[Rfam]
RNA sequence: UUAGUUGCCAGUGCGACACCCGUUCCCACACAACGGGCAUGGGUGCAACUCCCCCGUCCCACUCUGGACGGUCACCAGGACCA
Dot-bracket structure: ...(((((..[.))))).((((((.......))))))...(((..]....))).[.......(((((...]...)))))....